[Rfam]
RNA sequence: AUUGGCUGUGAUGACCUAAUGAAAUUCAAGCUUAAUAGACCAGAUUGUAGACUUCUCUUUUUAGAGAAUGUUAUGGUCGUAAUCCUAAGUCAAU
Number, nucleotide and partner (000 for none) at each position: 001a094002u093003u092004g091005g090006c089007u000008g000009u000010g000011a000012u000013g000014a000015c000016c000017u000018a000019a000020u000021g000022a000023a000024a000025u000026u000027c000028a000029a000030g000031c000032u000033u000034a000035a000036u000037a000038g000039a000040c000041c000042a000043g000044a000045u000046u000047g000048u000049a000050g000051a000052c000053u000054u000055c000056u000057c000058u000059u000060u000061u000062u000063a000064g000065a000066g000067a000068a000069u000070g000071u000072u000073a000074u000075g000076g000077u000078c000079g000080u000081a000082a000083u000084c000085c000086u000087a000088a000089g006090u005091c004092a003093a002094u001
RNA: Small nucleolar RNA Z107/R87